[Rfam]
RNA sequence: CGCGUUUUUCGCCCAGGCGGAGCUCGACCGCCGACUCAAGUCCUGACCGAAUUCAUCGACCCGCACCGCGAUACUCACGGGGUCGAGCCGCUCGGCAAGGUGAUGCAGGUCGCCCCG
Numbered sequence: 001c002g003c004g005u006u007u008u009u010c011g012c013c014c015a016g017g018c019g020g021a022g023c024u025c026g027a028c029c030g031c032c033g034a035c036u037c038a039a040g041u042c043c044u045g046a047c048c049g050a051a052u053u054c055a056u057c058g059a060c061c062c063g064c065a066c067c068g069c070g071a072u073a074c075u076c077a078c079g080g081g082g083u084c085g086a087g088c089c090g091c092u093c094g095g096c097a098a099g100g101u102g103a104u105g106c107a108g109g110u111c112g113c114c115c116c117g
Stems, first nucleotide, its partner, number of pairs: 016032005078117005089112002092109002095106003